[Rfam]
RNA sequence: GUUGAAGCUCCAUCUACAAAUGGAUAAAAUUUCAUUCGUAGUUUAGUAUAUACGAGUUAUUGAAAGUAAAGGGGCAGUACCAAUUUCUUGGUUUGACAAGAAAUUGGUUAUUGCUCCUUU
Numbered sequence: 001g002u003u004g005a006a007g008c009u010c011c012a013u014c015u016a017c018a019a020a021u022g023g024a025u026a027a028a029a030u031u032u033c034a035u036u037c038g039u040a041g042u043u044u045a046g047u048a049u050a051u052a053c054g055a056g057u058u059a060u061u062g063a064a065a066g067u068a069a070a071g072g073g074g075c076a077g078u079a080c081c082a083a084u085u086u087c088u089u090g091g092u093u094u095g096a097c098a099a100g101a102a103a104u105u106g107g108u109u110a111u112u113g114c115u116c117c118u119u120u
Stems, first nucleotide, its partner, number of pairs: 009024005068120012081106003085102005
Plastid-psbA-1 3UTR RNA: a 120-nucleotide RNA from Trigastrotheca stricta. The base pairs follow the family's consensus structure, which was predicted with LocARNA. The literature on the family includes a 2023 paper in Plant Commun by Richter et al., "Retrograde signaling in plants: A critical review focusing on the GUN pathway and beyond". Taxonomically the source falls in Trigastrotheca (Eukaryota, Embryophyta, Gunneridae, Molluginaceae). Rfam classes the family as a cis-regulatory element. Plastid psbA-1 is a non-coding RNA (ncRNA) present in plastids.